Annotation
This 123-nucleotide RNA from Chitinophaga oryziterrae belongs to the Rfam family "SAM riboswitch aptamer (S box leader)". Lineage of the source: Bacteria > Pseudomonadati > Bacteroidota > Chitinophagia > Chitinophaga.
[Rfam]
RNA sequence: CACUUAUCCAGAAAGGCGGAGGGACUUGGCCCUGCGAUGCCUUAGCAACCAAUCAUGUUUAACGACAGGAUAAAGGUGCUAAUUCCGGCCCCGGUUAUAAUUAUAAUCGAGGGAAGAUAAGUU
Numbered sequence: 001c002a003c004u005u006a007u008c009c010a011g012a013a014a015g016g017c018g019g020a021g022g023g024a025c026u027u028g029g030c031c032c033u034g035c036g037a038u039g040c041c042u043u044a045g046c047a048a049c050c051a052a053u054c055a056u057g058u059u060u061a062a063c064g065a066c067a068g069g070a071u072a073a074a075g076g077u078g079c080u081a082a083u084u085c086c087g088g089c090c091c092c093g094g095u096u097a098u099a100a101u102u103a104u105a106a107u108c109g110a111g112g113g114a115a116g117a118u119a120a121g122u123u
Stems, first nucleotide, its partner, number of pairs: 002122007013043005021032003026088004044080004049076002052071003084115001089112002092109006